[Rfam]
RNA sequence: AAAAUCCACUAGGGGAGCUGCGGAGGCAGCUGAGACAAGUGAUCGCUUGGACCCUUUGAACCUGAUCCGGUUAAUACCGGCGGAGGGAAGUGGAGCAGGCCUAUA
Numbered sequence: 001a002a003a004a005u006c007c008a009c010u011a012g013g014g015g016a017g018c019u020g021c022g023g024a025g026g027c028a029g030c031u032g033a034g035a036c037a038a039g040u041g042a043u044c045g046c047u048u049g050g051a052c053c054c055u056u057u058g059a060a061c062c063u064g065a066u067c068c069g070g071u072u073a074a075u076a077c078c079g080g081c082g083g084a085g086g087g088a089a090g091u092g093g094a095g096c097a098g099g100c101c102u103a104u105a
Stems, first nucleotide, its partner, number of pairs: 006093005011055004017030005037048004061086003067080004
Dot-bracket structure: .....(((((((((..(((((....)))))......((((....))))...)))).....(((...((((......))))...)))..)))))............
This 105-nucleotide sequence from Paenibacillus rhizosphaerae belongs to the Rfam family "TPP riboswitch aptamer (THI element)". The match comes from Rfam's covariance-model search (87 bits). Pairs were carried over by alignment from the consensus structure, which is taken from published work.